Description
The family of this 391-nucleotide part of an RNA from Basidiobolus meristosporus is "Eukaryotic large subunit ribosomal RNA". A search with the family's covariance model found it, with a score of 3310 bits. Its family is annotated with ribosome and structural constituent of ribosome in the Gene Ontology. The organism belongs to Basidiobolus meristosporus, within Eukaryota.
[Rfam]
RNA sequence: CGCUUGAAGUCAGUGUUGCCGGCUGAAAAUCAGCUUCCUGCGGAUGGCUUGCUGCGGUGGAGGGAGUGUUAAAACCCCUUGCUGUAGUACAGCUAGCCGGAGGGAGUGCACUUUUUAGUCGGCAGGUCAACAUCAAUUUCGGCCGGUGGAAAAAAGCAAGUGGAAUGUAGGUUGGAGCAAUCUGACUGUUAUAGCCACUAGUGUAUACACCGGCUGGGAUUGAGGACAGCAGUGCUGGCCACUAUGGCGGAAGCUCUGCUCUUUUCUCCGGGGGGCGUGUCAAGACAGCAUGCUGACUUGAUGCGUACACCCUUGGGAACGGGGCAGGUGUACUUCUCCAGCACUAAGGAUGUUGACGAAAUGGCUUUAAACGACCCGUCUUGAAACACGG
Numbered sequence: 001c002g003c004u005u006g007a008a009g010u011c012a013g014u015g016u017u018g019c020c021g022g023c024u025g026a027a028a029a030u031c032a033g034c035u036u037c038c039u040g041c042g043g044a045u046g047g048c049u050u051g052c053u054g055c056g057g058u059g060g061a062g063g064g065a066g067u068g069u070u071a072a073a074a075c076c077c078c079u080u081g082c083u084g085u086a087g088u089a090c091a092g093c094u095a096g097c098c099g100g101a102g103g104g105a106g107u108g109c110a111c112u113u114u115u116u117a118g119u120c121g122g123c124a125g126g127u128c129a130a131c132a133u134c135a136a137u138u139u140c141g142g143c144c145g146g147u148g149g150a151a152a153a154a155a156g157c158a159a160g161u162g163g164a165a166u167g168u169a170g171g172u173u174g175g176a177g178c179a180a181u182c183u184g185a186c187u188g189u190u191a192u193a194g195c196c197a198c199u200a201g202u203g204u205a206u207a208c209a210c211c212g213g214c215u216g217g218g219a220u221u222g223a224g225g226a227c228a229g230c231a232g233u234g235c236u237g238g239c240c241a242c243u244a245u246g247g248c249g250g251a252a253g254c255u256c257u258g259c260u261c262u263u264u265u266c267u268c269c270g271g272g273g274g275g276c277g278u279g280u281c282a283a284g285a286c287a288g289c290a291u292g293c294u295g296a297c298u299u300g301a302u303g304c305g306u307a308c309a310c311c312c313u314u315g316g317g318a319a320c321g322g323g324g325c326a327g328g329u330g331u332a333c334u335u336c337u338c339c340a341g342c343a344c345u346a347a348g349g350a351u352g353u354u355g356a357c358g359a360a361a362u363g364g365c366u367u368u369a370a371a372c373g374a375c376c377c378g379u380c381u382u383g384a385a386a387c388a389c390g391g
Base pairs, nucleotide, nucleotide: 001373002372004370005369006368007367008366009365010364011363012362017124018123019122020121021120022119023118024117025116026115027114028113029112128355129354130353131352132351133350134349376391377390378389379388